This 89-nucleotide sequence from Taenia asiatica belongs to the Rfam family "mir-219 microRNA precursor family". For this family Rfam cites "Vertebrate microRNA genes" (Lim et al., Science, 2003). A search with the family's covariance model found it, with a score of 56 bits.
RNA sequence: AAGUGCUUUGAUUGUCCAUUCGCAUUUCUUGCUGCUCUCGUGUACAAUUCACUGCUCUUCAAGAUGUGUGUAUGGGCAUCGCAGUACUU
Numbered sequence: 001a002a003g004u005g006c007u008u009u010g011a012u013u014g015u016c017c018a019u020u021c022g023c024a025u026u027u028c029u030u031g032c033u034g035c036u037c038u039c040g041u042g043u044a045c046a047a048u049u050c051a052c053u054g055c056u057c058u059u060c061a062a063g064a065u066g067u068g069u070g071u072a073u074g075g076g077c078a079u080c081g082c083a084g085u086a087c088u089u
Stems, first nucleotide, its partner, number of pairs: 002088006009081004014077005021070005027064005
Dot-bracket structure: .((((((.((((.(((((..(((((.(((((............................))))).)))))..))))))))).)))))).